[Rfam]
RNA sequence: ACCAGAAAUACAUACUUCUUUACAUUCCAUAGCUGUCAUAUGUUCAUAUGGGUACAUAAAGAAGUAUGUAUACCAAGC
Dot-bracket structure: .......(((((((((((((((....(((((...............))))).....))))))))))))))).......
The record is a 78-nucleotide sequence from Anguilla anguilla, which matches "mir-1 microRNA precursor family" in Rfam. A reference for the family is Lee and Ambros (2001), "An extensive class of small RNAs in Caenorhabditis elegans", Science. Rfam links the family to the GO terms miRNA-mediated post-transcriptional gene silencing and RISC complex. This family represents the microRNA (miRNA) mir-1 family. miRNAs are transcribed as ~70nt precursors (modelled here) and subsequently processed by the Dicer enzyme to give a ~22nt product. In this case the mature sequence comes from the 3' arm of the precursor. The extents of the hairpin precursors are not generally known and are estimated based on hairpin prediction. The products are thought to have regulatory roles through complementarity to mRNA. The involvement of Dicer in miRNA processing suggests a relationship with the phenomenon of RNA interference. miRNAs are numbered based on the sequence of the mature RNA. This family also contains the mir-206 from human, which appears to be related to mir-1. It scores 51 bits against the family's covariance model. The organism belongs to Anguilla, within Eukaryota.